RNA sequence: UUGGGAAUUGCCGAAAACCCAUAAAAGAGUAGGCG
Numbered sequence: 001u002u003g004g005g006a007a008u009u010g011c012c013g014a015a016a017a018c019c020c021a022u023a024a025a026a027g028a029g030u031a032g033g034c035g
Stems, first nucleotide, its partner, number of pairs: 002021004010034003
Dot-bracket structure: .((((....[[[.....))))..........]]].